The record is a 134-nucleotide sequence from Galemys pyrenaicus, which matches "Small nucleolar RNA SNORA64/SNORA10 family" in Rfam.

RNA sequence: GCUCUCCCAGCUCUGCAUGGUCACAUCUGGUCCCACACGUGUGACUUUCGUAAUGGGGAGAGAGAGCAAGGAUCCCCUCGGGCCUCGGGCUGGCCUUCUCAGUGGCCACUCUUCCCUCGAGGGGCGCGACAGGC
Numbered sequence: 001g002c003u004c005u006c007c008c009a010g011c012u013c014u015g016c017a018u019g020g021u022c023a024c025a026u027c028u029g030g031u032c033c034c035a036c037a038c039g040u041g042u043g044a045c046u047u048u049c050g051u052a053a054u055g056g057g058g059a060g061a062g063a064g065a066g067c068a069a070g071g072a073u074c075c076c077c078u079c080g081g082g083c084c085u086c087g088g089g090c091u092g093g094c095c096u097u098c099u100c101a102g103u104g105g106c107c108a109c110u111c112u113u114c115c116c117u118c119g120a121g122g123g124g125c126g127c128g129a130c131a132g133g134c
Stems, first nucleotide, its partner, number of pairs: 002066005008060001011058005019046008074124005080118003087112003091108005
Rfam 15.1 lists 703 matches to the family in 311 species.
From the family's description: This family belongs to the H/ACA class of small nucleolar RNAs (snoRNAs) which act as guides in the the modification of uridines to pseudouridines. This family includes the human snoRNAs U64 and ACA10 and mouse MBI-29.
For this family Rfam cites "Nucleolar localization signals of box H/ACA small nucleolar RNAs" (Narayanan et al., EMBO J, 1999).